The record is a 387-nucleotide RNA sequence from Amycolatopsis suaedae, which matches "Bacterial RNase P class A" in Rfam. The organism belongs to Amycolatopsis, within Bacteria. It is annotated as a ribozyme. Rfam links the family to the GO terms tRNA processing, dimeric ribonuclease P complex and ribonuclease P activity.
Nucleotides: 387
Base pairs, nucleotide, nucleotide: 001383002382003381004380005379006378007377008376009375010374011372012328013327014326015325016324017323018322020035021034022033023032024031025030040370041369042368044367045366046365047364048363049213050212051211052210056263057262058261059260061209062208063207064206065205066080067079068078069077070076081095082093083092084091085090096204097203101202102201103198104197105196118143119142120139121138122137123136124135125134126133127132151169152168153167154166155165156164171193172191173190174189175188176187177186178185179184217285218284219283220282243276244275245274246273247272248271255267256266257265258264292311293310294309295308296307297306298305299304
Number, partner (000 for none) and nucleotide at each position: 001383c002382g003381a004380g005379c006378u007377g008376g009375c010374a011372g012328g013327g014326c015325g016324a017323u018322c019000g020035c021034g022033g023032g024031g025030c026000g027000u028000g029000a030025g031024c032023c033022u034021c035020g036000a037000g038000g039000a040370a041369a042368g043000u044367c045366c046365g047364g048363a049213c050212u051211c052210c053000g054000c055000a056263g057262g058261g059260c060000a061209g062208g063207g064206u065205g066080g067079u068078u069077g070076c071000u072000a073000a074000c075000g076070g077069c078068a079067a080066c081095c082093c083092g084091g085090g086000g087000u088000g089000a090085c091084c092083c093082g094000c095081g096204g097203g098000a099000c100000a101202g102201u103198g104197c105196c106000a107000c108000a109000g110000a111000a112000a113000a114000c115000a116000g117000a118143c119142c120139g121138c122137u123136c124135c125134c126133g127132c128000g129000c130000g131000a132127g133126c134125g135124g136123g137122g138121g139120u140000a141000a142119g143118g144000g145000u146000g147000a148000a149000a150000c151169g152168g153167u154166g155165g156164u157000g158000u159000a160000a161000g162000a163000g164156a165155c166154c167153a168152c169151c170000a171193g172191c173190g174189c175188c176187c177186c178185g179184g180000g181000u182000g183000a184179c185178c186177g187176g188175g189174g190173c191172g192000g193171c194000u195000u196105g197104g198103u199000a200000a201102a202101c203097c204096c205065c206064a207063c208062c209061c210052g211051g212050a213049g214000c215000a216000a217285g218284g219283u220282c221000a222000a223000g224000a225000g226000g227000g228000a229000g230000c231000g232000c233000g234000a235000g236000c237000u238000c239000c240000u241000g242000c243276g244275c245274a246273g247272g248271c249000g250000u251000u252000c253000g254000a255267g256266g257265g258264c259000g260059g261058c262057c263056c264258g265257c266256c267255c268000g269000a270000u271248g272247c273246c274245u275244g276243c277000g278000g279000g280000u281000a282220g283219a284218c285217c286000g287000c288000u289000a290000g291000a292311g293310c294309c295308c296307g297306c298305c299304g300000g301000c302000g303000a304299c305298g306297g307296c308295g309294g310293g311292c312000c313000c314000a315000g316000a317000u318000g319000g320000a321000u322018g323017g324016u325015c326014g327013c328012c329000c330000a331000c332000c333000g334000c335000g336000c337000g338000g339000c340000c341000g342000c343000g344000a345000g346000g347000c348000g349000g350000c351000g352000u353000g354000g355000g356000g357000a358000c359000a360000g361000g362000a363048u364047c365046c366045g367044g368042c369041u370040u371000a372011c373000a374010u375009g376008c377007c378006a379005g380004c381003u382002c383001g384000u385000c386000c387000a